The family of this 335-nucleotide part of an RNA from Candidatus Gracilibacteria bacterium GN02-873 is "Bacterial large subunit ribosomal RNA".
RNA sequence: CGGGAUAACUGAGCUUAAGGAACUCUGCAAAACAGCGGUCGUAACUUCGGGAUAAGACCUGCCUCCUCAGCAUUUAUCUGAGAGGCCGCAGCUAACGAGUCCAGGCGACUGUUUACCAAAAACACAGCUCCGUGCUAAAUCGCAAGAUGAUGUAUACGGGGUGAUGCCUGUCCGGUGCCAGAAGAUCACGGGGAGGGGUGCAAGCUCUGAACCUAAGUCCUGGUGAACGACGGCCGUAACUAUAACGGUCCUAAGGUAGCGAAAUUCCUUGUCGGGUAAGUUCCGACCCGCACGAACGGCAUAACGGUCUGGACACUGUCUCAAGCUCAGGCCCG
Numbered sequence: 001c002g003g004g005a006u007a008a009c010u011g012a013g014c015u016u017a018a019g020g021a022a023c024u025c026u027g028c029a030a031a032a033c034a035g036c037g038g039u040c041g042u043a044a045c046u047u048c049g050g051g052a053u054a055a056g057a058c059c060u061g062c063c064u065c066c067u068c069a070g071c072a073u074u075u076a077u078c079u080g081a082g083a084g085g086c087c088g089c090a091g092c093u094a095a096c097g098a099g100u101c102c103a104g105g106c107g108a109c110u111g112u113u114u115a116c117c118a119a120a121a122a123c124a125c126a127g128c129u130c131c132g133u134g135c136u137a138a139a140u141c142g143c144a145a146g147a148u149g150a151u152g153u154a155u156a157c158g159g160g161g162u163g164a165u166g167c168c169u170g171u172c173c174g175g176u177g178c179c180a181g182a183a184g185a186u187c188a189c190g191g192g193g194a195g196g197g198g199u200g201c202a203a204g205c206u207c208u209g210a211a212c213c214u215a216a217g218u219c220c221u222g223g224u225g226a227a228c229g230a231c232g233g234c235c236g237u238a239a240c241u242a243u244a245a246c247g248g249u250c251c252u253a254a255g256g257u258a259g260c261g262a263a264a265u266u267c268c269u270u271g272u273c274g275g276g277u278a279a280g281u282u283c284c285g286a287c288c289c290g291c292a293c294g295a296a297c298g299g300c301a302u303a304a305c306g307g308u309c310u311g312g313a314c315a316c317u318g319u320c321u322c323a324a325g326c327u328c329a330g331g332c333c334c335g
Stems, first nucleotide, its partner, number of pairs: 001335004009330008018321003035060001037059004045050001061086005068080003072077001087091001099314007106306002110124003127162008135152001139148003165301004170231003175228002177224005184219003190213002195208005232250006251255001261288001271287006